Rfam assigns this 102-nucleotide RNA sequence from Oceanobacillus limi to the family "SAM riboswitch aptamer (S box leader)". Lineage of the source: Bacteria > Bacillati > Caryophanales > Bacillaceae > Oceanobacillus. It scores 66 bits against the family's covariance model.
[Rfam]
RNA sequence: UGAUUAUCUAGAGUGAUGGAGAGAUUUGGCUCGAUGAAUUCACAGCAACCUGCGUUUGUAAGGUGCUUCUACCAACAAGUGUCGUACCUUGAAUGAUAAGAG
Numbered sequence: 001u002g003a004u005u006a007u008c009u010a011g012a013g014u015g016a017u018g019g020a021g022a023g024a025u026u027u028g029g030c031u032c033g034a035u036g037a038a039u040u041c042a043c044a045g046c047a048a049c050c051u052g053c054g055u056u057u058g059u060a061a062g063g064u065g066c067u068u069c070u071a072c073c074a075a076c077a078a079g080u081g082u083c084g085u086a087c088c089u090u091g092a093a094u095g096a097u098a099a100g101a102g
Stems, first nucleotide, its partner, number of pairs: 001102001004099005013043004021032003026075004044067004049063002051060003071094001076091004081087001
Dot-bracket structure: (..(((((....((((....(((..[[[[))).......))))((((.(((((....))).))))))...(]]]]((((.(.....)))))..))))))..)